[Rfam]
RNA sequence: AGGUGCCCCAAAGGGGUGACCUGAGAACACAAAAUGUGUAAGCAGUGCUUACAAUGUUUGUAGCGGGCAACACAAUUUGUGUUCUCAGUUUCACACCUUUGGGGUGACC
Numbered sequence: 001a002g003g004u005g006c007c008c009c010a011a012a013g014g015g016g017u018g019a020c021c022u023g024a025g026a027a028c029a030c031a032a033a034a035u036g037u038g039u040a041a042g043c044a045g046u047g048c049u050u051a052c053a054a055u056g057u058u059u060g061u062a063g064c065g066g067g068c069a070a071c072a073c074a075a076u077u078u079g080u081g082u083u084c085u086c087a088g089u090u091u092c093a094c095a096c097c098u099u100u101g102g103g104g105u106g107a108c109c
Stems, first nucleotide, its partner, number of pairs: 007103002011099004016094004023086010

This 109-nucleotide RNA from Malus baccata belongs to the Rfam family "MIR398 microRNA precursor family". The source organism's lineage runs through Eukaryota, eudicotyledons, fabids, Maleae and Malus. Rfam 15.1 lists 627 matches to the family in 211 species. The base pairs follow the family's consensus structure, which was predicted with WAR. It scores 59 bits against the family's covariance model.